[Rfam]
RNA sequence: UUUUGAGUUUUCUAAGUGUCUCAUGAUGAAAUUUCAUAGGGCAGAUUCUGAGAUGGGAAUUGAAUUCAUCACUGAUAAAUAUUCUGUGAAAUCUGAAGACACAUGAAAAACU
Numbered sequence: 001u002u003u004u005g006a007g008u009u010u011u012c013u014a015a016g017u018g019u020c021u022c023a024u025g026a027u028g029a030a031a032u033u034u035c036a037u038a039g040g041g042c043a044g045a046u047u048c049u050g051a052g053a054u055g056g057g058a059a060u061u062g063a064a065u066u067c068a069u070c071a072c073u074g075a076u077a078a079a080u081a082u083u084c085u086g087u088g089a090a091a092u093c094u095g096a097a098g099a100c101a102c103a104u105g106a107a108a109a110a111c112u
Stems, first nucleotide, its partner, number of pairs: 013105002016102006031092007038082001040080001044076001047075002050072001052070006
Small nucleolar RNA SNORD90: a 112-nucleotide RNA from Monodelphis domestica. Rfam's curators put it in the seed alignment. The source organism's lineage runs through Eukaryota, Metazoa, Chordata, Tetrapoda and Monodelphis. A reference for the family is Huttenhofer et al. (2001), "RNomics: an experimental approach that identifies 201 candidates for novel, small, non-messenger RNAs in mouse", EMBO J. Pairs were carried over by alignment from the consensus structure, which was predicted with RNAalifold. snoRNA HBII-295 belongs to the family of C/D snoRNAs. It is the human orthologue of the mouse MBII-295 and has no identified RNA target.